A member of the RNA family "skipping-rope RNA" from Filibacter tadaridae, 81 nucleotides long.

[Rfam]
RNA sequence: GAUAAUUGAGGUGGGAAAGGUUCCCCACGCGCUCCUUCGGGAGUUACCAGAGAUCCUGGAUACGCCGACCAGGUAAUUGUC
Numbered sequence: 001g002a003u004a005a006u007u008g009a010g011g012u013g014g015g016a017a018a019g020g021u022u023c024c025c026c027a028c029g030c031g032c033u034c035c036u037u038c039g040g041g042a043g044u045u046a047c048c049a050g051a052g053a054u055c056c057u058g059g060a061u062a063c064g065c066c067g068a069c070c071a072g073g074u075a076a077u078u079g080u081c
Stems, first nucleotide, its partner, number of pairs: 001081008011028005019066003030050001031044004055073005